[Rfam]
RNA sequence: UUGCUGUAAUAACCCACUUGGUUUCGCUUACUGCUGAUGUGCAGUGUGGACACUUCUACUUGGCUGUCUGAGCAG
Dot-bracket structure: ((((...................................................................))))
RNA: Small nucleolar RNA SNORD53/SNORD92
Organism: Thryothorus ludovicianus